[Rfam]
RNA sequence: AGUAGCGGGAGCCCGGCCCCCGUGCGCGGCGUCGCCGUGCAUGAGGAAAGUCCCCCCACCAGUCGGGCAGGCGACCGGGCACACGCCCGGGGCGGGAGACCGUCGGCACUGGAACAGAGACGACACGUCUCCGUCCGACCGAUGCGGUGCGCGAACCCGCGGCGAGAAAGGCCGCGGGGAGUCAACCCACCGAGGGAUGAGGACGGAGGAGCGAUGGAACGGCCACCCUCGCCGGUGCAAGUCCGCGCACAGGAAGGUAGCCCGACGGACCGCGCGGACGCUCAGCCGAAUGCCGGAAGAACAGAAGGGGGCUUACUCCCCGCAACU
Numbered sequence: 001a002g003u004a005g006c007g008g009g010a011g012c013c014c015g016g017c018c019c020c021c022g023u024g025c026g027c028g029g030c031g032u033c034g035c036c037g038u039g040c041a042u043g044a045g046g047a048a049a050g051u052c053c054c055c056c057c058a059c060c061a062g063u064c065g066g067g068c069a070g071g072c073g074a075c076c077g078g079g080c081a082c083a084c085g086c087c088c089g090g091g092g093c094g095g096g097a098g099a100c101c102g103u104c105g106g107c108a109c110u111g112g113a114a115c116a117g118a119g120a121c122g123a124c125a126c127g128u129c130u131c132c133g134u135c136c137g138a139c140c141g142a143u144g145c146g147g148u149g150c151g152c153g154a155a156c157c158c159g160c161g162g163c164g165a166g167a168a169a170g171g172c173c174g175c176g177g178g179g180a181g182u183c184a185a186c187c188c189a190c191c192g193a194g195g196g197a198u199g200a201g202g203a204c205g206g207a208g209g210a211g212c213g214a215u216g217g218a219a220c221g222g223c224c225a226c227c228c229u230c231g232c233c234g235g236u237g238c239a240a241g242u243c244c245g246c247g248c249a250c251a252g253g254a255a256g257g258u259a260g261c262c263c264g265a266c267g268g269a270c271c272g273c274g275c276g277g278a279c280g281c282u283c284a285g286c287c288g289a290a291u292g293c294c295g296g297a298a299g300a301a302c303a304g305a306a307g308g309g310g311g312c313u314u315a316c317u318c319c320c321c322g323c324a325a326c327u
Stems, first nucleotide, its partner, number of pairs: 001327003005323005010317002013296005021043009048314003052311005057237004062266006070233005075090005091104005105228002110225003126213003129208008241279008
Archaeal RNase P: a 327-nucleotide RNA from Halarchaeum acidiphilum. The match comes from Rfam's covariance-model search (153 bits). Lineage of the source: Archaea > Halobacteria > Halobacteriales > Halarchaeum > Halarchaeum acidiphilum. Ribonuclease P (RNase P) is a ubiquitous endoribonuclease, found in archaea, bacteria and eukarya as well as chloroplasts and mitochondria. Its best characterised activity is the generation of mature 5'-ends of tRNAs by cleaving the 5'-leader elements of precursor-tRNAs. Cellular RNase Ps are ribonucleoproteins. RNA from bacterial RNase Ps retains its catalytic activity in the absence of the protein subunit, i.e. it is a ribozyme. Rfam classes the family as a ribozyme. Its Rfam clan is "RNaseP clan". For this family Rfam cites "The Ribonuclease P Database" (Brown, Nucleic Acids Res, 1999).